[Rfam]
RNA sequence: UUGCAUCCGGGGCUUGUUUUAAGUUGCCUGCGAUCUAUUUAAUGACUCAGGCAGCUAAAGCAAGUCUAGGACGCCA
Numbered sequence: 001u002u003g004c005a006u007c008c009g010g011g012g013c014u015u016g017u018u019u020u021a022a023g024u025u026g027c028c029u030g031c032g033a034u035c036u037a038u039u040u041a042a043u044g045a046c047u048c049a050g051g052c053a054g055c056u057a058a059a060g061c062a063a064g065u066c067u068a069g070g071a072c073g074c075c076a
Stems, first nucleotide, its partner, number of pairs: 003074002006071003010067011022056009032046001

A member of the RNA family "mir-1788 microRNA precursor family" from Sinocyclocheilus rhinocerous, 76 nucleotides long. NCBI's taxonomy places the organism under Eukaryota, Metazoa, Chordata, Actinopterygii, Sinocyclocheilus. The match comes from Rfam's covariance-model search (85 bits). Rfam 15.1 lists 504 matches to the family in 475 species.